[Rfam]
This 112-nucleotide RNA from Momordica charantia belongs to the Rfam family "Small nucleolar RNA Z152/R70/R12/". On this family, see Barneche et al., J Mol Biol 2001: "Identification of 66 box C/D snoRNAs in Arabidopsis thaliana: extensive gene duplications generated multiple isoforms predicting new ribosomal RNA 2'-O-methylation sites". The source organism's lineage runs through Eukaryota, Streptophytina, eudicotyledons, Momordiceae and Momordica. Gene Ontology terms of the family: nucleolus and RNA processing.
RNA sequence: GAAGCUAUGAUGAGAUGAAACACUUAGACGUGUUUUGGGCAGUGGCCGUAACUUUUAACUAAGUUAUGCCGUGAGCCUAUAUAAUAAACGACUUCUCCUUCCACUGAGCUUC
Numbered sequence: 001g002a003a004g005c006u007a008u009g010a011u012g013a014g015a016u017g018a019a020a021c022a023c024u025u026a027g028a029c030g031u032g033u034u035u036u037g038g039g040c041a042g043u044g045g046c047c048g049u050a051a052c053u054u055u056u057a058a059c060u061a062a063g064u065u066a067u068g069c070c071g072u073g074a075g076c077c078u079a080u081a082u083a084a085u086a087a088a089c090g091a092c093u094u095c096u097c098c099u100u101c102c103a104c105u106g107a108g109c110u111u112c
Base pairs, nucleotide, nucleotide: 001112002111003110004109005108